[Rfam]
RNA sequence: CUCUUAUCGAGAGUGGUGGAGGGACUGGCCCGAUGAAACCCGGCAACCCCGGUCUGUACGAACCGGAAGGUGCCAAUUCCUGCGGAAACCGACGCCAACGGUUUCCGAGAGAUAAGAG
Number, nucleotide and partner (000 for none) at each position: 001c118002u117003c116004u115005u114006a113007u112008c111009g000010a000011g000012a000013g041014u000015g040016g039017u038018g000019g000020a000021g031022g030023g029024a000025c082026u000027g080028g079029c023030c022031c021032g000033a000034u000035g000036a000037a000038a017039c016040c015041c013042g074043g073044c072045a071046a000047c070048c069049c066050c065051g064052g063053u000054c000055u000056g000057u000058a000059c000060g000061a000062a000063c052064c051065g050066g049067a000068a000069g048070g047071u045072g044073c043074c042075a000076a000077u000078u110079c028080c027081u000082g025083c107084g106085g105086a104087a103088a102089c101090c100091g099092a000093c000094g000095c000096c000097a000098a000099c091100g090101g089102u088103u087104u086105c085106c084107g083108a000109g000110a078111g008112a007113u006114a005115a004116g003117a002118g001
RNA: SAM riboswitch aptamer (S box leader)